[Rfam]
The family of this 102-nucleotide RNA sequence from Clostridium tarantellae is "Purine riboswitch aptamer". Rfam's curators write: Riboswitches are metabolite binding domains within certain messenger RNAs that serve as precision sensors for their corresponding targets.
RNA sequence: GCUGUAAGUUAAAGGAAUAUUCAUAUAGUUUUGGAAAUAAGGUCCAAAAGUUUCUACAAACUCACCUUAAAUGAGUUUACUAUGGAUAGAAGAUAUAUUUUU
Numbered sequence: 001g002c003u004g005u006a007a008g009u010u011a012a013a014g015g016a017a018u019a020u021u022c023a024u025a026u027a028g029u030u031u032u033g034g035a036a037a038u039a040a041g042g043u044c045c046a047a048a049a050g051u052u053u054c055u056a057c058a059a060a061c062u063c064a065c066c067u068u069a070a071a072u073g074a075g076u077u078u079a080c081u082a083u084g085g086a087u088a089g090a091a092g093a094u095a096u097a098u099u100u101u102u
Stems, first nucleotide, its partner, number of pairs: 018088008029049007058078007